The record is a 90-nucleotide sequence from Triplophysa rosa, which matches "Small nucleolar SNORD12/SNORD106" in Rfam. By type it is a C/D-box small nucleolar RNA. Rfam 15.1 lists 2,264 matches to the family in 650 species. The family is grouped with related families in Rfam's "SNORD12 clan". Its family is annotated with nucleolus and RNA processing in the Gene Ontology.
RNA sequence: CAUGUGGUUAAUGAUGUUGCUCUUUUUUCCCCAUCAUAUCGACCAUGGUGAUUUAUUUUGAAAAUAAGCCAAAUCCUCUGAAACCACAAC
Numbered sequence: 001c002a003u004g005u006g007g008u009u010a011a012u013g014a015u016g017u018u019g020c021u022c023u024u025u026u027u028u029c030c031c032c033a034u035c036a037u038a039u040c041g042a043c044c045a046u047g048g049u050g051a052u053u054u055a056u057u058u059u060g061a062a063a064a065u066a067a068g069c070c071a072a073a074u075c076c077u078c079u080g081a082a083a084c085c086a087c088a089a090c
Stems, first nucleotide, its partner, number of pairs: 003088007